[Rfam]
RNA: Mammalian CPEB3 ribozyme
RNA sequence: ACUGCAAAUUCAAAGCUAUAACAGAAUUGCUUAUGGCACAGCCCUGUCAGAUUCCAACAAAUCUGUAAAUUCUGCU
Numbered sequence: 001a002c003u004g005c006a007a008a009u010u011c012a013a014a015g016c017u018a019u020a021a022c023a024g025a026a027u028u029g030c031u032u033a034u035g036g037c038a039c040a041g042c043c044c045u046g047u048c049a050g051a052u053u054c055c056a057a058c059a060a061a062u063c064u065g066u067a068a069a070u071u072c073u074g075c076u
Base pairs, nucleotide, nucleotide: 015042016041017040020076022074023073024072025071026070028038029037048065049064050063051062052061053060